[Rfam]
RNA sequence: GCGGACGGCCGGACGACCGCGGCAUGCGAGUGUCGAGGAAAGUCCGGGCUCCAGGGAGAAAUGGCGGCGGGUAACGCCCGCCCGGGGUAACCCGAGGGAAAGCGCCACAGAGAGGAGACCGCCGUCCCGGCGGCUCACGGACCGCGAGGUCCAUGGGAUGGCAUGGGACGGCAAGGGUGAAAGGGUGGGGUAAGAGCCCACCGCGCUGGCGGCAACGUCGGCGGCAUGGCAAGCCCCGCCAGGAGCAAGGCCAAAUAGGGAUCGCGCGGGGCUUGUCCCCAGGGCUUCUCCCGCCCGAGCGAUCCGGGUUGGCUGCUGGAAUCCGUCGGCAACGGCGGAUCGAGAGGAAUGGUCGUCGGCGGUUUUUUGCCGCCACAGGACCCGGCUUACAGGCCGUCCGCACCC
Numbered sequence: 001g002c003g004g005a006c007g008g009c010c011g012g013a014c015g016a017c018c019g020c021g022g023c024a025u026g027c028g029a030g031u032g033u034c035g036a037g038g039a040a041a042g043u044c045c046g047g048g049c050u051c052c053a054g055g056g057a058g059a060a061a062u063g064g065c066g067g068c069g070g071g072u073a074a075c076g077c078c079c080g081c082c083c084g085g086g087g088u089a090a091c092c093c094g095a096g097g098g099a100a101a102g103c104g105c106c107a108c109a110g111a112g113a114g115g116a117g118a119c120c121g122c123c124g125u126c127c128c129g130g131c132g133g134c135u136c137a138c139g140g141a142c143c144g145c146g147a148g149g150u151c152c153a154u155g156g157g158a159u160g161g162c163a164u165g166g167g168a169c170g171g172c173a174a175g176g177g178u179g180a181a182a183g184g185g186u187g188g189g190g191u192a193a194g195a196g197c198c199c200a201c202c203g204c205g206c207u208g209g210c211g212g213c214a215a216c217g218u219c220g221g222c223g224g225c226a227u228g229g230c231a232a233g234c235c236c237c238g239c240c241a242g243g244a245g246c247a248a249g250g251c252c253a254a255a256u257a258g259g260g261a262u263c264g265c266g267c268g269g270g271g272c273u274u275g276u277c278c279c280c281a282g283g284g285c286u287u288c289u290c291c292c293g294c295c296c297g298a299g300c301g302a303u304c305c306g307g308g309u310u311g312g313c314u315g316c317u318g319g320a321a322u323c324c325g326u327c328g329g330c331a332a333c334g335g336c337g338g339a340u341c342g343a344g345a346g347g348a349a350u351g352g353u354c355g356u357c358g359g360c361g362g363u364u365u366u367u368u369g370c371c372g373c374c375a376c377a378g379g380a381c382c383c384g385g386c387u388u389a390c391a392g393g394c395c396g397u398c399c400g401c402a403c404c405c
Stems, first nucleotide, its partner, number of pairs: 001401010011390001012357007020035006040388003044385005049245004058290002062241005067081005082096001083094004097236002102234002104230003119176002121172009184202006203225001204223008249314004259305006282296004321340008

Shown here is a 405-nucleotide RNA sequence from Amaricoccus macauensis, a member of the family "Bacterial RNase P class A". It scores 287 bits against the family's covariance model. The organism belongs to Amaricoccus, within Bacteria. Rfam classes the family as a ribozyme.